[Rfam]
RNA: TPP riboswitch aptamer (THI element)
RNA sequence: UCGUCCGACACGGGGUGCUCCGCGCGCGCGGGGCUGAGAUCACACCCGUAGAACCUGCAUCAGGUAAUGCUGACGAAGGGAUGUCCCGGCAUGUCUGU
Numbered sequence: 001u002c003g004u005c006c007g008a009c010a011c012g013g014g015g016u017g018c019u020c021c022g023c024g025c026g027c028g029c030g031g032g033g034c035u036g037a038g039a040u041c042a043c044a045c046c047c048g049u050a051g052a053a054c055c056u057g058c059a060u061c062a063g064g065u066a067a068u069g070c071u072g073a074c075g076a077a078g079g080g081a082u083g084u085c086c087c088g089g090c091a092u093g094u095c096u097g098u
Stems, first nucleotide, its partner, number of pairs: 007085004011048004016042001017034005054079003060073004